[Rfam]
RNA: mir-278 microRNA precursor family
Organism: Ooceraea biroi
RNA sequence: GAUGCAUCCGGAUGAAGUCUUCAUCGGCCCUGAACGUAUUGGAACAGGUCGGUGGGACUUUCGUCCGUUUGCAGA
Numbered sequence: 001g002a003u004g005c006a007u008c009c010g011g012a013u014g015a016a017g018u019c020u021u022c023a024u025c026g027g028c029c030c031u032g033a034a035c036g037u038a039u040u041g042g043a044a045c046a047g048g049u050c051g052g053u054g055g056g057a058c059u060u061u062c063g064u065c066c067g068u069u070u071g072c073a074g075a
Stems, first nucleotide, its partner, number of pairs: 003073004009067007016059005022054002025051005